[Rfam]
Nucleotides: 092
Stems, first nucleotide, its partner, number of pairs: 002087006013076004018072004027062002030059001
Number, partner (000 for none) and nucleotide at each position: 001000g002087g003086g004085u005084c006083a007082g008000c009000c010000a011000u012000a013076g014075c015074u016073c017000a018072g019071c020070g021069g022000u023000u024000a025000c026000u027062u028061c029000c030059a031000g032000u033000c034000a035000a036000a037000c038000u039000u040000u041000g042000u043000u044000c045000a046000u047000c048000c049000u050000u051000a052000c053000c054000c055000a056000g057000g058000a059030u060000c061028g062027a063000u064000c065000c066000c067000c068000c069021c070020c071019g072018c073016g074015g075014g076013c077000g078000c079000u080000a081000u082007c083006u084005g085004a086003c087002c088000u089000u090000u091000u092000a
Shown here is a 92-nucleotide RNA from Leptobrachium leishanense, a member of the family "Vault RNA". A reference for the family is Stadler et al. (2009), "Evolution of Vault RNAs", Mol Biol Evol. This family of RNAs are found as part of the enigmatic vault ribonucleoprotein complex. The complex consists of a major vault protein (MVP), two minor vault proteins (VPARP and TEP1), and several small untranslated RNA molecules. Pairs were carried over by alignment from the consensus structure, which is taken from published work. Lineage of the source: Eukaryota > Craniata > Vertebrata > Anura > Leptobrachium.